[Rfam]
RNA sequence: CCUCCAUUCUUGGCAUGCUCGUGGUUGUUUUGUACUCUUGUGUGUAUAGUGUGGAGGAAUAUUAGUACCAGUGAAAUGUCUUCGGUACCAGUAUGUUCCCGUCAACUGGUUCUAUCCUCAGUCGCUGGGACACAU
Numbered sequence: 001c002c003u004c005c006a007u008u009c010u011u012g013g014c015a016u017g018c019u020c021g022u023g024g025u026u027g028u029u030u031u032g033u034a035c036u037c038u039u040g041u042g043u044g045u046a047u048a049g050u051g052u053g054g055a056g057g058a059a060u061a062u063u064a065g066u067a068c069c070a071g072u073g074a075a076a077u078g079u080c081u082u083c084g085g086u087a088c089c090a091g092u093a094u095g096u097u098c099c100c101g102u103c104a105a106c107u108g109g110u111u112c113u114a115u116c117c118u119c120a121g122u123c124g125c126u127g128g129g130a131c132a133c134a135u
Stems, first nucleotide, its partner, number of pairs: 001057005014044005021037001023036003069127006088109005